[Rfam]
RNA sequence: AUUGGGAUGAUGAAGAAAAAUCAGACGGCUUCCCAUUGAUUUUUCAAAAUGAUGUUUACUACCAGCUACUUCUGACCAAU
Numbered sequence: 001a002u003u004g005g006g007a008u009g010a011u012g013a014a015g016a017a018a019a020a021u022c023a024g025a026c027g028g029c030u031u032c033c034c035a036u037u038g039a040u041u042u043u044u045c046a047a048a049a050u051g052a053u054g055u056u057u058a059c060u061a062c063c064a065g066c067u068a069c070u071u072c073u074g075a076c077c078a079a080u
Base pairs, nucleotide, nucleotide: 001080002079003078004077005076
Record summary:
Small nucleolar RNA R12: an 80-nucleotide RNA sequence from Leersia perrieri. It scores 72 bits against the family's covariance model. Rfam describes the family as follows. snoR12 is a C/D box small nucleolar RNA, which acts as a methylation guide for 25S ribosomal RNA in plants. snoR12 has been alternatively named snoZ44 in Arabidopsis and snoZ131 in rice. The literature on the family includes a 2003 paper in Nucleic Acids Res by Chen et al., "The high diversity of snoRNAs in plants: identification and comparative study of 120 snoRNA genes from Oryza sativa". It is annotated as a C/D-box small nucleolar RNA.